[Rfam]
RNA sequence: UUUGAGGGGACUGUUGUCUGGCUCGAGGACUCUGGCUCGCUCUAUUCAUGUUGGAUCUCUUUCGAUCUAACAAUCGAAUUGAACCUUCAGAUUUCAGAUUUGAUUAGGGUUUUAGCGUCUUCGGACCAGGCUUCAUUCCCCCCAAU
Numbered sequence: 001u002u003u004g005a006g007g008g009g010a011c012u013g014u015u016g017u018c019u020g021g022c023u024c025g026a027g028g029a030c031u032c033u034g035g036c037u038c039g040c041u042c043u044a045u046u047c048a049u050g051u052u053g054g055a056u057c058u059c060u061u062u063c064g065a066u067c068u069a070a071c072a073a074u075c076g077a078a079u080u081g082a083a084c085c086u087u088c089a090g091a092u093u094u095c096a097g098a099u100u101u102g103a104u105u106a107g108g109g110u111u112u113u114a115g116c117g118u119c120u121u122c123g124g125a126c127c128a129g130g131c132u133u134c135a136u137u138c139c140c141c142c143c144a145a146u
Base pairs, nucleotide, nucleotide: 002145003144004143006141007140008139009138010137012135013134016131017130018129019128020127021126024123025122026121027120028119029118030117

Rfam assigns this 146-nucleotide sequence to the family "mir-166 microRNA precursor family".
The literature on the family includes a 2002 paper in Genes Dev by Reinhart et al., "MicroRNAs in plants".
Rfam's curators put it in the seed alignment.
Rfam links the family to the GO terms miRNA-mediated post-transcriptional gene silencing and RISC complex.